[Rfam]
RNA sequence: UGUCUCCUCCAUGUCUCAUUCGAUAUGGAUUCAGCCCGUCACACUGACGGGCUUUUUUUC
Numbered sequence: 001u002g003u004c005u006c007c008u009c010c011a012u013g014u015c016u017c018a019u020u021c022g023a024u025a026u027g028g029a030u031u032c033a034g035c036c037c038g039u040c041a042c043a044c045u046g047a048c049g050g051g052c053u054u055u056u057u058u059u060c
Base pairs, nucleotide, nucleotide: 008029009028010027011026012025013024014023015022033053034052035051036050037049038048039047040046